[Rfam]
RNA sequence: AAAGAAGGGAACGGUUGCUGUUGAUGUAGUAUACCAUUUUGUUUAACAAUAUAUCACAGUGGCUGUUCUUUUUUGU
Dot-bracket structure: ..((.(((((((..((((((.((.((((.....................)))).))))))))..))))))).))..

This 76-nucleotide RNA sequence from Drosophila willistoni belongs to the Rfam family "mir-6 microRNA precursor family". The literature on the family includes a 2001 paper in Cell by Ambros, "microRNAs: tiny regulators with great potential". The base pairs follow the family's consensus structure, which was predicted with PFOLD. NCBI's taxonomy places the organism under Eukaryota, Protostomia, Pterygota, Neoptera, Sophophora. This family consists of the microRNA (miRNA) precursor mir-6 which appears to be Drosophila specific. Animal miRNAs are transcribed as ~70nt precursors and subsequently processed by the Dicer enzyme to give a ~22nt product.